[Rfam]
RNA sequence: GCUGUGUGAUGAUACCCCAGUGACUGAACACACUGUAGCUGGUCCUUGGUGUGUGCAUGAGGUACUGCACUGUUUCAAGACGGGACUGAUGGCAGC
Dot-bracket structure: ((((.....................................................................................))))...
The record is a 96-nucleotide sequence from Geococcyx californianus, which matches "Small nucleolar RNA SNORD21" in Rfam.
For this family Rfam cites "U21, a novel small nucleolar RNA with a 13 nt. complementarity to 28S rRNA, is encoded in an intron of ribosomal protein L5 gene in chicken and mammals" (Qu et al., Nucleic Acids Res, 1994).
The family's consensus secondary structure was predicted with PFOLD.
A search with the family's covariance model found it, with a score of 89 bits.